The family of this 145-nucleotide sequence from Nocardioides silvaticus is "SAM riboswitch aptamer (S box leader)". The match comes from Rfam's covariance-model search (70 bits). The SAM riboswitch is found upstream of a number of genes which code for proteins involved in methionine or cysteine biosynthesis in Gram-positive bacteria. The organism belongs to Nocardioides, within Bacteria.
[Rfam]
RNA sequence: UGCUCAUCCAGAGGGACUGAGGGAACGGCCCAGUGAAGUCCCGGCAACCGCCACGAGCCUCCGCCACCCGGAUCCGUCCGGCGCUCGGUUCGUGGAGACGGUGCCAAAUCCGGCCCGCGCGACCGUCGCCCGGGGCAGAUGAGAA
Number, nucleotide and partner (000 for none) at each position: 001u145002g000003c143004u142005c141006a140007u139008c138009c000010a000011g000012a000013g042014g041015g040016a039017c038018u000019g000020a000021g031022g030023g029024a000025a000026c112027g111028g110029c023030c022031c021032a000033g000034u000035g000036a000037a000038g017039u016040c015041c014042c013043g105044g104045c103046a102047a000048c101049c100050g000051c000052c000053a000054c000055g000056a000057g000058c000059c000060u000061c000062c000063g000064c000065c000066a000067c000068c000069c000070g000071g000072a000073u000074c000075c000076g000077u000078c000079c000080g000081g000082c000083g000084c000085u000086c000087g000088g000089u000090u000091c000092g000093u000094g000095g000096a000097g000098a000099c000100g049101g048102u046103g045104c044105c043106a000107a000108a000109u137110c028111c027112g026113g000114c134115c133116c132117g131118c000119g129120c128121g127122a000123c000124c000125g000126u000127c121128g120129c119130c000131c117132g116133g115134g114135g000136c000137a109138g008139a007140u006141g005142a004143g003144a000145a001